[Rfam]
This 172-nucleotide sequence from Beta vulgaris belongs to the Rfam family "small nucleolar RNA snoR143". The base pairs follow the family's consensus structure, which was predicted with RNAalifold. Rfam 15.1 lists 660 matches to the family in 212 species. Lineage of the source: Eukaryota > Viridiplantae > Spermatophyta > Magnoliopsida > Beta vulgaris.
RNA sequence: CUUUAUGAAAUUCAUAGGCCUCAUUGUAAUAAAUGAUAGUGUGGCCUUUGAGUGAAGAUGCAUAGAAAAACAGCUGUAAAUUUUACAGCAACGGCCAGACAACCGUGGAGAUGGAUCCACGGAUGAGUUGCUCUUUAUAAUGUUGCUCGUUCACUAAAUCCAUCUUACAUUA
Numbered sequence: 001c002u003u004u005a006u007g008a009a010a011u012u013c014a015u016a017g018g019c020c021u022c023a024u025u026g027u028a029a030u031a032a033a034u035g036a037u038a039g040u041g042u043g044g045c046c047u048u049u050g051a052g053u054g055a056a057g058a059u060g061c062a063u064a065g066a067a068a069a070a071c072a073g074c075u076g077u078a079a080a081u082u083u084u085a086c087a088g089c090a091a092c093g094g095c096c097a098g099a100c101a102a103c104c105g106u107g108g109a110g111a112u113g114g115a116u117c118c119a120c121g122g123a124u125g126a127g128u129u130g131c132u133c134u135u136u137a138u139a140a141u142g143u144u145g146c147u148c149g150u151u152c153a154c155u156a157a158a159u160c161c162a163u164c165u166u167a168c169a170u171u172a
Stems, first nucleotide, its partner, number of pairs: 002062001004060003010053002013050002016047005022041006108166008125148004130143002